[Rfam]
RNA: MIR812 microRNA precursor family
RNA sequence: AAUAAGUGCAGUCGUGGGUAUUCGUGUCUAACGUUUGACCGUCUAUCUUAUUUAAAAAAUUAUGAAAAAUUAAAAACAAAUAGUCAUGCUUAGAGUAUUAUUCAUGUUUUAUCAUCUAAUAACAAUAAAAGUAAUACUCAUAAAAAAAUUUCAAAUAAGAUAAACGGUUAAACGUUGGACAUGAACAGUGUAAAAGUGCACUUAUU
Numbered sequence: 001a002a003u004a005a006g007u008g009c010a011g012u013c014g015u016g017g018g019u020a021u022u023c024g025u026g027u028c029u030a031a032c033g034u035u036u037g038a039c040c041g042u043c044u045a046u047c048u049u050a051u052u053u054a055a056a057a058a059a060u061u062a063u064g065a066a067a068a069a070u071u072a073a074a075a076a077c078a079a080a081u082a083g084u085c086a087u088g089c090u091u092a093g094a095g096u097a098u099u100a101u102u103c104a105u106g107u108u109u110u111a112u113c114a115u116c117u118a119a120u121a122a123c124a125a126u127a128a129a130a131g132u133a134a135u136a137c138u139c140a141u142a143a144a145a146a147a148a149u150u151u152c153a154a155a156u157a158a159g160a161u162a163a164a165c166g167g168u169u170a171a172a173c174g175u176u177g178g179a180c181a182u183g184a185a186c187a188g189u190g191u192a193a194a195a196g197u198g199c200a201c202u203u204a205u206u
Stems, first nucleotide, its partner, number of pairs: 027179006034172009044162008